[Rfam]
The record is a 397-nucleotide RNA from Dyadobacter sediminis, which matches "Bacterial RNase P class A" in Rfam.
It is annotated as a ribozyme.
Its family is annotated with tRNA processing, ribonuclease P activity and dimeric ribonuclease P complex in the Gene Ontology.

RNA sequence: AGGAUAAGCUGUCCUACCGCCACGGUUUUUACCGGGGAGGAAAGUCCGGGCAGCGCAGAGUACCGUACUUCCUAACGGGAAGGCAGCAAACCGGUGACGAUUUGCUGACAGCAAGUGCCACAGAAAAGAUACCGCCUUGGCAUGUUUUUUAUGUAUCAGGGUAAGGGUGAAAUGGUGGAGUAAGAGCCCACCGCUCUCUGGGUAACCAUUGAGGCAGGGUAAACCUUACGGGCUGAAAGAUCAAAUAGGUGUCAGUUUGCGGAGUUACUCGCUCCCGUUUCUAACGCUGGCACGGGUAGAUCGUUAGAGAUUCCGGGUGACCGGAAUCCCGGAUAAAUGGUAGGAACCUUUUAGUUUGUAAAAGAUACAGAACCCGGCUUACAGGCUUGUCCUUUUU
Numbered sequence: 001a002g003g004a005u006a007a008g009c010u011g012u013c014c015u016a017c018c019g020c021c022a023c024g025g026u027u028u029u030u031a032c033c034g035g036g037g038a039g040g041a042a043a044g045u046c047c048g049g050g051c052a053g054c055g056c057a058g059a060g061u062a063c064c065g066u067a068c069u070u071c072c073u074a075a076c077g078g079g080a081a082g083g084c085a086g087c088a089a090a091c092c093g094g095u096g097a098c099g100a101u102u103u104g105c106u107g108a109c110a111g112c113a114a115g116u117g118c119c120a121c122a123g124a125a126a127a128g129a130u131a132c133c134g135c136c137u138u139g140g141c142a143u144g145u146u147u148u149u150u151a152u153g154u155a156u157c158a159g160g161g162u163a164a165g166g167g168u169g170a171a172a173u174g175g176u177g178g179a180g181u182a183a184g185a186g187c188c189c190a191c192c193g194c195u196c197u198c199u200g201g202g203u204a205a206c207c208a209u210u211g212a213g214g215c216a217g218g219g220u221a222a223a224c225c226u227u228a229c230g231g232g233c234u235g236a237a238a239g240a241u242c243a244a245a246u247a248g249g250u251g252u253c254a255g256u257u258u259g260c261g262g263a264g265u266u267a268c269u270c271g272c273u274c275c276c277g278u279u280u281c282u283a284a285c286g287c288u289g290g291c292a293c294g295g296g297u298a299g300a301u302c303g304u305u306a307g308a309g310a311u312u313c314c315g316g317g318u319g320a321c322c323g324g325a326a327u328c329c330c331g332g333a334u335a336a337a338u339g340g341u342a343g344g345a346a347c348c349u350u351u352u353a354g355u356u357u358g359u360a361a362a363a364g365a366u367a368c369a370g371a372a373c374c375c376g377g378c379u380u381a382c383a384g385g386c387u388u389g390u391c392c393u394u395u396u397u
Base pairs, nucleotide, nucleotide: 001393002392003391004390005389006388007387008386009385010384011382012345013344014343015342016341017340018339020037021036023034024033025032026031042380043379044378046377047376048375049374050373051235052234053233054232059282060281063231064230065229066228067227068082069081070080071079072078083109084107085106086105087104088103089102090101110226111225115224116223117220118219119218132166133165134162135161136160137159138158139157140156142154143153144152145151174192175191176190177189178188193215194213195212196211199208200207201206239302240301241300242299249293250292251291252290253289254288309328310327311326312325313324314323315322316321